Rfam assigns this 78-nucleotide sequence from Sphingobium indicum to the family "Makes More Granules Regulator RNA (mmgR)".
[Rfam]
RNA sequence: GCCUCCCCCCUUUGGAGGCGUCUCCUCCCUGAACCUUGGCCGCCCCAUGCUCUGCAUGGGGCGGUUUUUUCUUGGGUU
Numbered sequence: 001g002c003c004u005c006c007c008c009c010c011u012u013u014g015g016a017g018g019c020g021u022c023u024c025c026u027c028c029c030u031g032a033a034c035c036u037u038g039g040c041c042g043c044c045c046c047a048u049g050c051u052c053u054g055c056a057u058g059g060g061g062c063g064g065u066u067u068u069u070u071c072u073u074g075g076g077u078u
Stems, first nucleotide, its partner, number of pairs: 001019006041063009
By type it is a small RNA.
The match comes from Rfam's covariance-model search (42 bits).
On this family, see Corbino et al., Genome Biol 2005: "Evidence for a second class of S-adenosylmethionine riboswitches and other regulatory RNA motifs in alpha-proteobacteria".